Annotation:
The record is a 104-nucleotide RNA sequence from Salinibacter ruber, which matches "TPP riboswitch aptamer (THI element)" in Rfam. The match comes from Rfam's covariance-model search (61 bits).
RNA sequence: GGAUGAAGCUAGGGGUGUUCGGCGCCGCACGGCGGCCGGGCUGAGAGAGUCCCUCCGAACCUGAUCCGGGUCAUGCCGGCGCAGGAAAGCACAGUUCUCCCCCG
Numbered sequence: 001g002g003a004u005g006a007a008g009c010u011a012g013g014g015g016u017g018u019u020c021g022g023c024g025c026c027g028c029a030c031g032g033c034g035g036c037c038g039g040g041c042u043g044a045g046a047g048a049g050u051c052c053c054u055c056c057g058a059a060c061c062u063g064a065u066c067c068g069g070g071u072c073a074u075g076c077c078g079g080c081g082c083a084g085g086a087a088a089g090c091a092c093a094g095u096u097c098u099c100c101c102c103c104g
Stems, first nucleotide, its partner, number of pairs: 008090003011054004016048001017041007060085004066079004